[Rfam]
Nucleotides: 264
Base pairs, nucleotide, nucleotide: 001264002263003262004261005260006259008056009055010054011029012028013027014026015025016024018022033053034052035051037049062256063255064254065253066252068250071248072247073246074245075244077241079239080238081237083235084234085233090227091226094224095223096222097221098220099219102217103216105213106212113208114207116206117205118204119203120202121198122197123196124195125194126193127189128188130187131186132185133184136179137178138177139176140175146171147170148169149168154163155162156161
Number, partner (000 for none) and nucleotide at each position: 001264c002263c003262g004261u005260g006259c007000a008056g009055c010054c011029g012028g013027g014026g015025c016024g017000g018022u019000a020000g021000c022018g023000g024016u025015g026014c027013c028012c029011u030000g031000u032000a033053c034052c035051a036000u037049c038000a039000a040000u041000c042000c043000g044000c045000u046000a047000u048000a049037g050000u051035u052034g053033g054010g055009g056008u057000g058000u059000u060000g061000g062256g063255c064254g065253g066252c067000a068250u069000g070000a071248g072247g073246g074245u075244c076000u077241g078000c079239g080238u081237u082000g083235a084234u085233g086000c087000a088000g089000c090227u091226g092000c093000c094224c095223u096222u097221u098220a099219u100000a101000a102217g103216c104000g105213g106212c107000g108000u109000u110000g111000a112000a113208g114207u115000u116206u117205g118204g119203g120202u121198c122197u123196u124195a125194c126193g127189c128188a129000a130187u131186a132185u133184g134000u135000g136179c137178c138177a139176u140175c141000g142000a143000a144000c145000c146171g147170u148169g149168u150000c151000a152000g153000g154163a155162u156161a157000g158000g159000a160000a161156u162155a163154u164000a165000g166000c167000a168149g169148c170147a171146c172000u173000a174000a175140g176139g177138u178137g179136g180000a181000u182000u183000u184133c185132g186131u187130a188128u189127g190000u191000g192000c193126c194125g195124u196123g197122a198121g199000g200000g201000u202120g203119c204118c205117u206116g207114g208113c209000g210000g211000a212106g213105c214000a215000g216103g217102c218000u219099g220098u221097a222096a223095a224094g225000g226091u227090a228000a229000c230000g231000u232000a233085c234084a235083u236000g237081g238080g239079c240000a241077u242000a243000g244075g245074a246073u247072u248071c249000g250068a251000a252066g253065c254064c255063g256062u257000c258000c259006g260005c261004a262003c263002g264001g